RNA sequence: ACCCUCCAGUUCCCUUUCCCAUCGGGUCUAAACCCUGGUCCUGGUGGUCGUAAGAGGAGGAAUAGUAGUACUGAAAUUGUGCUCGUAGUGUGCUUUGUAUGGCAUGUGAGCUAGUUUCAGACAAGG
Numbered sequence: 001a002c003c004c005u006c007c008a009g010u011u012c013c014c015u016u017u018c019c020c021a022u023c024g025g026g027u028c029u030a031a032a033c034c035c036u037g038g039u040c041c042u043g044g045u046g047g048u049c050g051u052a053a054g055a056g057g058a059g060g061a062a063u064a065g066u067a068g069u070a071c072u073g074a075a076a077u078u079g080u081g082c083u084c085g086u087a088g089u090g091u092g093c094u095u096u097g098u099a100u101g102g103c104a105u106g107u108g109a110g111c112u113a114g115u116u117u118c119a120g121a122c123a124a125g126g
Stems, first nucleotide, its partner, number of pairs: 003060005019047005025040004077114003081111004089104003
The family of this 126-nucleotide RNA sequence from Moschus moschiferus is "Small nucleolar RNA SNORA61". It is annotated as an H/ACA-box small nucleolar RNA. Taxonomically the source falls in Moschus (Eukaryota, Sarcopterygii, Theria, Laurasiatheria). ACA61 is a member of the H/ACA class of snoRNA that guide the sites of modification of uridines to pseudouridines.